Shown here is a 96-nucleotide sequence, a member of the family "DUF1874 RNA".
It is annotated as a cis-regulatory element.

RNA sequence: GUCAGUCCCGUAGGGAAGAUGGCCGUCCAAGGUAAGAGCGGCCAUAGGCCGCCGCCAUCUUCCUCCGCUAAAAGGCGGAAUUACGGGACAGGAGGU
Dot-bracket structure: ....(((((((((.(((((((((............(.(((((.....))))))))))))))).(((((......))))).))))))))).......
Numbered sequence: 001g002u003c004a005g006u007c008c009c010g011u012a013g014g015g016a017a018g019a020u021g022g023c024c025g026u027c028c029a030a031g032g033u034a035a036g037a038g039c040g041g042c043c044a045u046a047g048g049c050c051g052c053c054g055c056c057a058u059c060u061u062c063c064u065c066c067g068c069u070a071a072a073a074g075g076c077g078g079a080a081u082u083a084c085g086g087g088a089c090a091g092g093a094g095g096u
Stems, first nucleotide, its partner, number of pairs: 005089009015062009036053001038052005064079005